Shown here is a 130-nucleotide RNA sequence from Pipistrellus kuhlii, a member of the family "Small nucleolar RNA SNORA42/SNORA80 family". Its family is annotated with nucleolus and RNA processing in the Gene Ontology. Rfam describes the family as follows. The members of this family belong to the H/ACA class of snoRNAs that guide the sites of modification of uridines to pseudouridines. Human ACA42 (SNORA42) was cloned from HeLa cells by immunoprecipitation with anti-GAR1 antibody. Its is predicted to guide the pseudouridylation of residues U109 and U572 of 18S rRNA. ACA42 shares the same host gene with ACA26, ACA46, ACA50. This family also includes mammalian snoRNA ACA67 (SNORA80) which was identified by computational screening and its expression in mouse experimentally verified by Northern blot and primer extension analysis. ACA67 is proposed to guide the pseudouridylation of the same 18S rRNA residues as ACA42. Rfam 15.1 lists 1,535 matches to the family in 183 species. The family's RNA type in Rfam is H/ACA-box small nucleolar RNA. For this family Rfam cites "A computational screen for mammalian pseudouridylation guide H/ACA RNAs" (Schattner et al., RNA, 2006). Taxonomically the source falls in Pipistrellus (Eukaryota, Eumetazoa, Boreoeutheria, Laurasiatheria).
RNA sequence: GGUUUUAAGAAAAUGGCAGGCCCAUACCCUGGCUCUCAUAGUGUCCCAGACAGAGCAAACUGUGGCCUUGAACCAUUGCCUGGCCUCUGCCUGUGGGCUGACUACAGGCACUGAAGCAGGUUGCACAGUG
Numbered sequence: 001g002g003u004u005u006u007a008a009g010a011a012a013a014u015g016g017c018a019g020g021c022c023c024a025u026a027c028c029c030u031g032g033c034u035c036u037c038a039u040a041g042u043g044u045c046c047c048a049g050a051c052a053g054a055g056c057a058a059a060c061u062g063u064g065g066c067c068u069u070g071a072a073c074c075a076u077u078g079c080c081u082g083g084c085c086u087c088u089g090c091c092u093g094u095g096g097g098c099u100g101a102c103u104a105c106a107g108g109c110a111c112u113g114a115a116g117c118a119g120g121u122u123g124c125a126c127a128g129u130g
Base pairs, nucleotide, nucleotide: 001046002045004043013039014038015037016036018034019033021032022031063123064122065121066120067119068118074113075112079108080107081100082099083098084097085096086095